[Rfam]
RNA: Small nucleolar RNA SNORA73 family
RNA sequence: CCAUUGUGGAUACCCCGGGAGGUCACUCACCCCAGGCUCUGUCCAGGUGGUACACGGGAGCAUAGGGCUGUGCCCUGUGAUGUACAGCCCUUCUCCACAACAUUGGAGAGGAAGCUGGGCCUCACAUCUGUUCCUGCAUAUUCCUACAGCUUCUCAGAGUCCUUUGGGCAAUGACUGAGGAGAUAAACCAUGCAGGAAACAAUG
Numbered sequence: 001c002c003a004u005u006g007u008g009g010a011u012a013c014c015c016c017g018g019g020a021g022g023u024c025a026c027u028c029a030c031c032c033c034a035g036g037c038u039c040u041g042u043c044c045a046g047g048u049g050g051u052a053c054a055c056g057g058g059a060g061c062a063u064a065g066g067g068c069u070g071u072g073c074c075c076u077g078u079g080a081u082g083u084a085c086a087g088c089c090c091u092u093c094u095c096c097a098c099a100a101c102a103u104u105g106g107a108g109a110g111g112a113a114g115c116u117g118g119g120c121c122u123c124a125c126a127u128c129u130g131u132u133c134c135u136g137c138a139u140a141u142u143c144c145u146a147c148a149g150c151u152u153c154u155c156a157g158a159g160u161c162c163u164u165u166g167g168g169c170a171a172u173g174a175c176u177g178a179g180g181a182g183a184u185a186a187a188c189c190a191u192g193c194a195g196g197a198a199a200c201a202a203u204g
Base pairs, nucleotide, nucleotide: 001106002105003104005102006101007100008044009043010042011041012040014036015035019028020027021026047098048097049096050095056091057090058089060085062083063082064081065078133196134195135194136193137192138191139190150182151181152180153179154178155177159169160168161167162166